[Rfam]
Nucleotides: 124
Base pairs, nucleotide, nucleotide: 002060003059004058005057006056007055008054009053010052011051012050067114068113069112070111071110073108074107075106079102080101081100083098084097085096086095087094
Number, partner (000 for none) and nucleotide at each position: 001000a002060g003059g004058c005057u006056c007055c008054c009053u010052u011051c012050u013000c014000c015000c016000u017000g018000g019000g020000a021000g022000g023000c024000c025000a026000c027000a028000g029000c030000u031000c032000u033000u034000u035000u036000c037000u038000u039000g040000c041000c042000a043000g044000g045000g046000a047000g048000c049000c050012a051011g052010a053009a054008g055007g056006g057005a058004g059003c060002c061000a062000u063000g064000g065000c066000u067114c068113c069112c070111c071110c072000u073108g074107g075106g076000g077000a078000c079102a080101a081100g082000g083098g084097a085096g086095c087094c088000a089000c090000a091000u092000u093000u094087g095086g096085c097084u098083c099000c100081c101080u102079u103000g104000u105000u106075c107074c108073c109000g110071g111070g112069g113068g114067g115000a116000g117000c118000c119000g120000a121000a122000g123000c124000u